[Rfam]
RNA sequence: UCAUGUCUUAGAACCUGUGGUCUGAAACCCUGGAUAGGACCAGUGCUACCCAUAAAGAGCUAUUCGACUCAUAGUGUCCCAUGCCAGAGCAAACUGUGGCCCCAAACCAUUGCCUGGCCUGUGUCCGUAGGCUCCUGGCACUGAAGUGGGUUGCACAGUA
Numbered sequence: 001u002c003a004u005g006u007c008u009u010a011g012a013a014c015c016u017g018u019g020g021u022c023u024g025a026a027a028c029c030c031u032g033g034a035u036a037g038g039a040c041c042a043g044u045g046c047u048a049c050c051c052a053u054a055a056a057g058a059g060c061u062a063u064u065c066g067a068c069u070c071a072u073a074g075u076g077u078c079c080c081a082u083g084c085c086a087g088a089g090c091a092a093a094c095u096g097u098g099g100c101c102c103c104a105a106a107c108c109a110u111u112g113c114c115u116g117g118c119c120u121g122u123g124u125c126c127g128u129a130g131g132c133u134c135c136u137g138g139c140a141c142u143g144a145a146g147u148g149g150g151u152u153g154c155a156c157a158g159u160a
Stems, first nucleotide, its partner, number of pairs: 002083003005079001008076001015074006097153006108143002113138002116133005
RNA: Small nucleolar RNA SNORA42/SNORA80 family